[Rfam]
RNA sequence: GCGGCCGAGAGGCGCUGCAGCGGACAAUCGUCCGCCACGCUCGGCCCCAUCCCUUGCAACAAGGGCGCCUUCUUGCG
Numbered sequence: 001g002c003g004g005c006c007g008a009g010a011g012g013c014g015c016u017g018c019a020g021c022g023g024a025c026a027a028u029c030g031u032c033c034g035c036c037a038c039g040c041u042c043g044g045c046c047c048c049a050u051c052c053c054u055u056g057c058a059a060c061a062a063g064g065g066c067g068c069c070u071u072c073u074u075g076c077g
Stems, first nucleotide, its partner, number of pairs: 003046006021034005

Rfam assigns this 77-nucleotide RNA from Actinophytocola sp. to the family "SAH (S-adenosyl-L-homocysteine) riboswitch aptamer". Taxonomically the source falls in Actinophytocola (Bacteria, Actinomycetes, Pseudonocardiales, Pseudonocardiaceae). A search with the family's covariance model found it, with a score of 38 bits.